A member of the RNA family "Bacterial small signal recognition particle RNA" from Helicobacter monodelphidis, 98 nucleotides long. Lineage of the source: Bacteria > Campylobacterota > Epsilonproteobacteria > Campylobacterales > Helicobacter. Gene Ontology terms of the family: signal recognition particle, plasma membrane targeting and SRP-dependent cotranslational protein targeting to membrane, signal sequence recognition. It scores 54 bits against the family's covariance model. Rfam classes the family as a non-coding RNA gene.

RNA sequence: UCUUUAGACCUAUGCAAUGAGGCUGAAAAGUAAUACUUCAGGGUGGGAACACAGCAGAGUCCUUUUUUGUUUUGUGUGCCGUAGGUAUCUGAAGAGGG
Numbered sequence: 001u002c003u004u005u006a007g008a009c010c011u012a013u014g015c016a017a018u019g020a021g022g023c024u025g026a027a028a029a030g031u032a033a034u035a036c037u038u039c040a041g042g043g044u045g046g047g048a049a050c051a052c053a054g055c056a057g058a059g060u061c062c063u064u065u066u067u068u069g070u071u072u073u074g075u076g077u078g079c080c081g082u083a084g085g086u087a088u089c090u091g092a093a094g095a096g097g098g
Stems, first nucleotide, its partner, number of pairs: 004092005009085006015076001017075006025067006035060004043052003
Pairs were carried over by alignment from the consensus structure, which is taken from published work. The signal recognition particle (SRP) is a universally conserved ribonucleoprotein involved in the co-translational targeting of proteins to membranes.